[Rfam]
RNA sequence: GGUGCAGGUGAUGAGAAGCAAGACAGGGACAUCAGAUCUCCUUCCGAGGGGAGUGAUCGACUAAAGUCUCAAUGGGAAUCUCUCUGAUGCAUA
Numbered sequence: 001g002g003u004g005c006a007g008g009u010g011a012u013g014a015g016a017a018g019c020a021a022g023a024c025a026g027g028g029a030c031a032u033c034a035g036a037u038c039u040c041c042u043u044c045c046g047a048g049g050g051g052a053g054u055g056a057u058c059g060a061c062u063a064a065a066g067u068c069u070c071a072a073u074g075g076g077a078a079u080c081u082c083u084c085u086g087a088u089g090c091a092u093a
Base pairs, nucleotide, nucleotide: 002092003091004090005089006088